[Rfam]
RNA: Small nucleolar RNA snoR14
RNA sequence: ACGAGGUACAAUGAAAUUCAUGGUUUGUCAAUCCACUGAAAUUAUUAGUGUGAUGUUAAUCAUGAAUCCGACAGGUUCUGAUCGU
Numbered sequence: 001a002c003g004a005g006g007u008a009c010a011a012u013g014a015a016a017u018u019c020a021u022g023g024u025u026u027g028u029c030a031a032u033c034c035a036c037u038g039a040a041a042u043u044a045u046u047a048g049u050g051u052g053a054u055g056u057u058a059a060u061c062a063u064g065a066a067u068c069c070g071a072c073a074g075g076u077u078c079u080g081a082u083c084g085u
Stems, first nucleotide, its partner, number of pairs: 001085004
Dot-bracket structure: ((((.............................................................................))))